RNA sequence: CUGCAAUGAUGACUUCUAUGUUACUGACCUGGAAUUGCUGGUCUCCGUGUCGGCUCUGUUCAGGAAAUGACUUGGGUUAAUCUUCUCUCUGAGCGG
Numbered sequence: 001c002u003g004c005a006a007u008g009a010u011g012a013c014u015u016c017u018a019u020g021u022u023a024c025u026g027a028c029c030u031g032g033a034a035u036u037g038c039u040g041g042u043c044u045c046c047g048u049g050u051c052g053g054c055u056c057u058g059u060u061c062a063g064g065a066a067a068u069g070a071c072u073u074g075g076g077u078u079a080a081u082c083u084u085c086u087c088u089c090u091g092a093g094c095g096g
Base pairs, nucleotide, nucleotide: 001095003094004093037054038053039052040051

Z30 small nucleolar RNA: a 96-nucleotide RNA from Gambusia affinis. Pairs were carried over by alignment from the consensus structure, which was predicted with PFOLD. Rfam classes the family as a C/D-box small nucleolar RNA. The organism belongs to Gambusia, within Eukaryota. Gene Ontology terms of the family: RNA processing and nucleolus. For this family Rfam cites "Purified box C/D snoRNPs are able to reproduce site-specific 2'-O-methylation of target RNA in vitro" (Galardi et al., Mol Cell Biol, 2002).